[Rfam]
RNA sequence: ACGUGGCUGGAAUGAGGAAUCAAUUAGAUGUAUGAAGUGGAUAUCCCUUGUGAAUUGAGUUUUUGAGGCAUAAAAAUUGUCUGACCUGCCACGC
Numbered sequence: 001a002c003g004u005g006g007c008u009g010g011a012a013u014g015a016g017g018a019a020u021c022a023a024u025u026a027g028a029u030g031u032a033u034g035a036a037g038u039g040g041a042u043a044u045c046c047c048u049u050g051u052g053a054a055u056u057g058a059g060u061u062u063u064u065g066a067g068g069c070a071u072a073a074a075a076a077u078u079g080u081c082u083g084a085c086c087u088g089c090c091a092c093g094c
Base pairs, nucleotide, nucleotide: 002093003092004091005090006089007088009086010085
RNA: Small nucleolar RNA Z266